mir-544 microRNA precursor family: an 86-nucleotide RNA sequence from Papio anubis. Pairs were carried over by alignment from the consensus structure, which was predicted with RNAalifold. Rfam links the family to the GO terms miRNA-mediated post-transcriptional gene silencing and RISC complex.
[Rfam]
RNA sequence: AUUACCUCAGGAGCUUGUUAAAAUGCAGAUGCUGAUUCAGGAAGUCUGAGAUUCUGCAUUUCUAUCAAGUUCUCAGGUGAUGCUGA
Numbered sequence: 001a002u003u004a005c006c007u008c009a010g011g012a013g014c015u016u017g018u019u020a021a022a023a024u025g026c027a028g029a030u031g032c033u034g035a036u037u038c039a040g041g042a043a044g045u046c047u048g049a050g051a052u053u054c055u056g057c058a059u060u061u062c063u064a065u066c067a068a069g070u071u072c073u074c075a076g077g078u079g080a081u082g083c084u085g086a
Stems, first nucleotide, its partner, number of pairs: 003079003009073003014069004019064002021061003025057005032050002

It scores 81 bits against the family's covariance model.